[Rfam]
Annotation:
The record is a 75-nucleotide RNA sequence from Actinokineospora bangkokensis, which matches "ASpks TB sRNA" in Rfam.

RNA sequence: CUUGAGCGACCCCAGCAGCAGCGGCUCGUCCGCGGGCCGGUCCUGCCCGUAGGUGGCCAGCAGGGCCUGGGCCUC
Numbered sequence: 001c002u003u004g005a006g007c008g009a010c011c012c013c014a015g016c017a018g019c020a021g022c023g024g025c026u027c028g029u030c031c032g033c034g035g036g037c038c039g040g041u042c043c044u045g046c047c048c049g050u051a052g053g054u055g056g057c058c059a060g061c062a063g064g065g066c067c068u069g070g071g072c073c074u075c
Base pairs, nucleotide, nucleotide: 014026015025016024031071033069038065043060044059045058047056048055049054
Lineage of the source: Bacteria > Bacillati > Actinomycetota > Actinomycetes > Actinokineospora. It is annotated as an antisense RNA. The family's consensus secondary structure is taken from published work. For this family Rfam cites "Identification of small RNAs in Mycobacterium tuberculosis" (Arnvig and Young, Mol Microbiol, 2009).